[Rfam]
Rfam assigns this 150-nucleotide sequence from Peptostreptococcus stomatis to the family "glmS glucosamine-6-phosphate activated ribozyme aptamer". The base pairs follow the family's consensus structure, which is taken from published work. Its family is annotated with regulation of gene expression and catalytic activity in the Gene Ontology. The family's RNA type in Rfam is riboswitch. Lineage of the source: Bacteria > Bacillati > Clostridia > Peptostreptococcaceae > Peptostreptococcus stomatis.
RNA sequence: CCCUUUCACUUAGCGCCAGACUGUAGAAAUACAGUUAACGAGGACAGGGUUAUCGAAAAUUCGGCGGAUGCCCUGCGGUGAACUAGCAUCGAUAGAAAAUUUAUAAAAAGCAGGAGUGAUCCUGUAACAGAGGACUUUUUCGUCUAGUAC
Dot-bracket structure: ...................((((((....)))))).........(((((...((((....))))......)))))(((((......)))))...(((((.(........((((((....))))))........).)))))..........